[Rfam]
RNA sequence: GGUUGGGCUUAUGCUUCAAGGAUUGCGUUCUUCAAGGGGUGAGAAGAA
Numbered sequence: 001g002g003u004u005g006g007g008c009u010u011a012u013g014c015u016u017c018a019a020g021g022a023u024u025g026c027g028u029u030c031u032u033c034a035a036g037g038g039g040u041g042a043g044a045a046g047a048a
Stems, first nucleotide, its partner, number of pairs: 003019003006015003028048006
Rfam assigns this 48-nucleotide RNA sequence from Enterococcus ratti to the family "Na+ riboswitch aptamer (DUF1646)". Taxonomically the source falls in Enterococcus (Bacteria, Bacillati, Bacilli, Lactobacillales). A search with the family's covariance model found it, with a score of 46 bits. The family's consensus secondary structure is taken from published work. On this family, see White et al., Nat Chem Biol 2022: "Na(+) riboswitches regulate genes for diverse physiological processes in bacteria".